A member of the RNA family "NLPC-P60 RNA" from Streptomyces microflavus, 103 nucleotides long. Rfam's curators put it in the seed alignment. NCBI's taxonomy places the organism under Bacteria, Actinomycetota, Actinomycetes, Streptomycetaceae, Streptomyces microflavus. Rfam classes the family as a cis-regulatory element.
RNA sequence: CGGUGCUUGCAUCACCCGACACCGAGUGACCGGAUUAAUCGGAUUAGCUCGCUCACUUGUGGACGAGCCCGAAUCAUCCGGGCCCGGUCUCCGUCACGGAGGU
Dot-bracket structure: ........................((((..(((.((((.....)))).)))..))))...((((..(((((.......)))))...)))).............